[Rfam]
RNA sequence: CGGCAGCGGUUGGGAGGUUUUUCUUCUUUUCUAACCCUAACUCGCCGUCUCCUUCGGUGGCGGUUGGCCUCGUUCGCUGUUUUACUUGCUGACUUUCAGCGAACUGAAGCUUCGAAAAAACGUCAGCGAUUCGGGGGAAACCUCCUCUUCCGCUAGCCGGCCACGCGUCGGUUCCCUCCUUUCUCCGCCUCGAGCGUGCUCGGCUUCCGAGCCGGCGUCGCCGCCCCCGCUCGAGGCCGCGGUCAGCCUGGUCCGGGCCACUGCUGCCGCGAAGGGUUUGGCCCUGCUCGCCUCGGGGGAGGCGAGUCUCACUGAAAGGCGGAGGACGGGGGGGAAAAGUGCUCGCAAGGCCCGGGCGUGAGAGCAAAAACAGGCGGCGCCUCCUGUCCCGCUCGCCCCUGAGUAGUGGGGUGUGCGGCGGGCGCCGUCCGGACACGC
Numbered sequence: 001c002g003g004c005a006g007c008g009g010u011u012g013g014g015a016g017g018u019u020u021u022u023c024u025u026c027u028u029u030u031c032u033a034a035c036c037c038u039a040a041c042u043c044g045c046c047g048u049c050u051c052c053u054u055c056g057g058u059g060g061c062g063g064u065u066g067g068c069c070u071c072g073u074u075c076g077c078u079g080u081u082u083u084a085c086u087u088g089c090u091g092a093c094u095u096u097c098a099g100c101g102a103a104c105u106g107a108a109g110c111u112u113c114g115a116a117a118a119a120a121c122g123u124c125a126g127c128g129a130u131u132c133g134g135g136g137g138a139a140a141c142c143u144c145c146u147c148u149u150c151c152g153c154u155a156g157c158c159g160g161c162c163a164c165g166c167g168u169c170g171g172u173u174c175c176c177u178c179c180u181u182u183c184u185c186c187g188c189c190u191c192g193a194g195c196g197u198g199c200u201c202g203g204c205u206u207c208c209g210a211g212c213c214g215g216c217g218u219c220g221c222c223g224c225c226c227c228c229g230c231u232c233g234a235g236g237c238c239g240c241g242g243u244c245a246g247c248c249u250g251g252u253c254c255g256g257g258c259c260a261c262u263g264c265u266g267c268c269g270c271g272a273a274g275g276g277u278u279u280g281g282c283c284c285u286g287c288u289c290g291c292c293u294c295g296g297g298g299g300a301g302g303c304g305a306g307u308c309u310c311a312c313u314g315a316a317a318g319g320c321g322g323a324g325g326a327c328g329g330g331g332g333g334g335a336a337a338a339g340u341g342c343u344c345g346c347a348a349g350g351c352c353c354g355g356g357c358g359u360g361a362g363a364g365c366a367a368a369a370a371c372a373g374g375c376g377g378c379g380c381c382u383c384c385u386g387u388c389c390c391g392c393u394c395g396c397c398c399c400u401g402a403g404u405a406g407u408g409g410g411g412u413g414u415g416c417g418g419c420g421g422g423c424g425c426c427g428u429c430c431g432g433a434c435a436c437g438c
Stems, first nucleotide, its partner, number of pairs: 005154005012147001013145005019140005072104008088127006094120003157355004162350001204325006215308001218305004225298005238271005244266004250259003273285004373429009389418004396411004
RNA: Vertebrate telomerase RNA
Organism: Naja naja